[Rfam]
RNA sequence: CCUGAGCUUUGAAUGGCACUGGAUGAAUUCACGGCUGCUACGUUUCUGGACCGUGUUUUCAUCAGUGCUAUCAAAAGAUCAGC
Numbered sequence: 001c002c003u004g005a006g007c008u009u010u011g012a013a014u015g016g017c018a019c020u021g022g023a024u025g026a027a028u029u030c031a032c033g034g035c036u037g038c039u040a041c042g043u044u045u046c047u048g049g050a051c052c053g054u055g056u057u058u059u060c061a062u063c064a065g066u067g068c069u070a071u072c073a074a075a076a077g078a079u080c081a082g083c
Stems, first nucleotide, its partner, number of pairs: 003081003007077004013071006020064003025059003030055005

mir-263 microRNA precursor family: an 83-nucleotide sequence from Trichinella papuae. Clan: mir-182 clan. The family's consensus secondary structure was predicted with RNAalifold. For this family Rfam cites "Direct sequencing and expression analysis of a large number of miRNAs in Aedes aegypti and a multi-species survey of novel mosquito miRNAs" (Li et al., BMC Genomics, 2009). Gene Ontology terms of the family: RISC complex and miRNA-mediated post-transcriptional gene silencing. The match comes from Rfam's covariance-model search (52 bits).